About this RNA:
This 99-nucleotide RNA from Duganella sp. Root198D2 belongs to the Rfam family "TPP riboswitch aptamer (THI element)". Gene Ontology term of the family: thiamine pyrophosphate binding. The match comes from Rfam's covariance-model search (67 bits). The organism belongs to Duganella, within Bacteria.

[Rfam]
RNA sequence: CCGCCUCGCUAGGGGUCCUCGCGCAUGUGCGCGGGGUGAGAAAUACCCUCCGAACCUGAUCUGGAUAAUGCCAGCGAAGGAAAGCGUAGAUGGUUGAAG
Numbered sequence: 001c002c003g004c005c006u007c008g009c010u011a012g013g014g015g016u017c018c019u020c021g022c023g024c025a026u027g028u029g030c031g032c033g034g035g036g037u038g039a040g041a042a043a044u045a046c047c048c049u050c051c052g053a054a055c056c057u058g059a060u061c062u063g064g065a066u067a068a069u070g071c072c073a074g075c076g077a078a079g080g081a082a083a084g085c086g087u088a089g090a091u092g093g094u095u096g097a098a099g
Stems, first nucleotide, its partner, number of pairs: 007086004011049004016043001017036007055080003061074004